[Rfam]
RNA sequence: CUACUGAUGAUGAGGUGACCACUGCACAGUCUGAGUUCUGGGAACCAUGUUAUGGAGUGUCCUGAAGAAAAAAAAAGAAGAAA
Numbered sequence: 001c002u003a004c005u006g007a008u009g010a011u012g013a014g015g016u017g018a019c020c021a022c023u024g025c026a027c028a029g030u031c032u033g034a035g036u037u038c039u040g041g042g043a044a045c046c047a048u049g050u051u052a053u054g055g056a057g058u059g060u061c062c063u064g065a066a067g068a069a070a071a072a073a074a075a076a077g078a079a080g081a082a083a
Stems, first nucleotide, its partner, number of pairs: 002082001004080002039047003